[Rfam]
RNA sequence: AGAGCGUGGUCAGGGAUCCCAAUCCAGCCUUAGGAAAAGAAACCUUCCAUGGGAGUCUUGGAGAUUGGCGACCGUCCUAAUGACUUA
Dot-bracket structure: .((((((.(..(.((.(.((((((...((.......((((..(((.....)))..)))))).)))))).).)).)..).))).))).

About this RNA:
Rfam assigns this 87-nucleotide RNA from Equus caballus to the family "mir-9014 microRNA precursor family". The family's consensus secondary structure was predicted with RNAalifold. The family has 2 seed sequences and 581 matches in Rfam 15.1. The source organism's lineage runs through Eukaryota, Bilateria, Deuterostomia, Craniata and Equus. Its family is annotated with RISC complex and miRNA-mediated post-transcriptional gene silencing in the Gene Ontology.